Rfam assigns this 102-nucleotide sequence from Heyndrickxia shackletonii to the family "Purine riboswitch aptamer". About the family: Riboswitches are metabolite binding domains within certain messenger RNAs that serve as precision sensors for their corresponding targets.
RNA sequence: AGUAUAAUUAACAACAUGUCUUGUAUAUGAUUAGGAAUACGGCCUAAUUGUUUCUACCAAGCUGCCGUAAAUGGCUUGACUACAGGAGUUUUGUUAUAUUUA
Numbered sequence: 001a002g003u004a005u006a007a008u009u010a011a012c013a014a015c016a017u018g019u020c021u022u023g024u025a026u027a028u029g030a031u032u033a034g035g036a037a038u039a040c041g042g043c044c045u046a047a048u049u050g051u052u053u054c055u056a057c058c059a060a061g062c063u064g065c066c067g068u069a070a071a072u073g074g075c076u077u078g079a080c081u082a083c084a085g086g087a088g089u090u091u092u093g094u095u096a097u098a099u100u101u102a
Stems, first nucleotide, its partner, number of pairs: 019087007029049007058078007